RNA sequence: GCGGUGUGCCCUUCUUGGGCGUUUCCUCCCUAGACUUCGGGCCGCUCCCUCACCGGGGCGGCCUUUUUUCGUCUUCGG
Dot-bracket structure: .......((((.....))))...................(((((((((......)))))))))...............
Notes
The family of this 78-nucleotide RNA sequence from Methylobacterium sp. Leaf99 is "Makes More Granules Regulator RNA (mmgR)". It is annotated as a small RNA. NCBI's taxonomy places the organism under Bacteria, Alphaproteobacteria, Hyphomicrobiales, Methylobacteriaceae, Methylobacterium. Its family is annotated with DNA-templated transcription, termination, response to nitrogen compound and protein binding in the Gene Ontology.